[Rfam]
Source information:
The record is an 83-nucleotide RNA from Turnera subulata, which matches "mir-395 microRNA precursor family" in Rfam. The match comes from Rfam's covariance-model search (71 bits). mir-395 was identified in both Arabidopsis thaliana and Oryza sativa computationally and was later experimentally verified. mir-395 is thought to target mRNAs coding for ATP sulphurylases. The mature sequence is excised from the 3' arm of the hairpin. NCBI's taxonomy places the organism under Eukaryota, Euphyllophyta, rosids, Malpighiales, Turnera. Its family is annotated with miRNA-mediated post-transcriptional gene silencing and RISC complex in the Gene Ontology. The literature on the family includes a 2004 paper in Mol Cell by Jones-Rhoades and Bartel, "Computational Identification of Plant MicroRNAs and Their Targets, Including a Stress-Induced miRNA".

RNA sequence: UUGUUCCCUGGAGUUCCCUUGACCACUUCAUUGGGUCUAUAAAAUUAUCCCACUGAAGUGUUUGGGGGAACUCUGGGUGACAU
Numbered sequence: 001u002u003g004u005u006c007c008c009u010g011g012a013g014u015u016c017c018c019u020u021g022a023c024c025a026c027u028u029c030a031u032u033g034g035g036u037c038u039a040u041a042a043a044a045u046u047a048u049c050c051c052a053c054u055g056a057a058g059u060g061u062u063u064g065g066g067g068g069a070a071c072u073c074u075g076g077g078u079g080a081c082a083u
Stems, first nucleotide, its partner, number of pairs: 005079001007077003011073010022063001024060007032052004